[Rfam]
RNA sequence: UUUAUGUUGUGAUGAUAUAUGAAUUUAUUCAAUAACUUCAUAGAUUUCGAAAGAAAUCAAUGAGAAUUCAAUUCAUUAUACUGAGCAGAAA
Number, nucleotide and partner (000 for none) at each position: 001u091002u090003u089004a000005u087006g086007u085008u000009g000010u000011g000012a000013u000014g000015a000016u000017a000018u000019a000020u000021g000022a000023a000024u000025u000026u000027a000028u000029u000030c000031a000032a000033u000034a000035a000036c000037u000038u000039c000040a000041u000042a000043g058044a057045u056046u055047u000048c000049g000050a000051a000052a000053g000054a000055a046056a045057u044058c043059a000060a000061u000062g000063a000064g000065a000066a000067u000068u000069c000070a000071a000072u000073u000074c000075a000076u000077u000078a000079u000080a000081c000082u000083g000084a000085g007086c006087a005088g000089a003090a002091a001
This 91-nucleotide RNA from Daucus carota belongs to the Rfam family "Small nucleolar RNA R64/Z200 family". A search with the family's covariance model found it, with a score of 45 bits. A reference for the family is Galardi et al. (2002), "Purified box C/D snoRNPs are able to reproduce site-specific 2'-O-methylation of target RNA in vitro", Mol Cell Biol. It is annotated as a C/D-box small nucleolar RNA.